[Rfam]
RNA sequence: GACAGCCCCCGAAAGGGGGAAGUUAAAAAUAAAAUUUGUCGUAUUGGUAGACUUUGAAAGUUAAUUUUCAAAGGUUGAAGAUUCGGCUGAUGUGCAUACAA
Numbered sequence: 001g002a003c004a005g006c007c008c009c010c011g012a013a014a015g016g017g018g019g020a021a022g023u024u025a026a027a028a029a030u031a032a033a034a035u036u037u038g039u040c041g042u043a044u045u046g047g048u049a050g051a052c053u054u055u056g057a058a059a060g061u062u063a064a065u066u067u068u069c070a071a072a073g074g075u076u077g078a079a080g081a082u083u084c085g086g087c088u089g090a091u092g093u094g095c096a097u098a099c100a101a
Base pairs, nucleotide, nucleotide: 006018007017008016009015043082044081050076053072054071055070056069057068058067059066060065
RNA: RT-17 RNA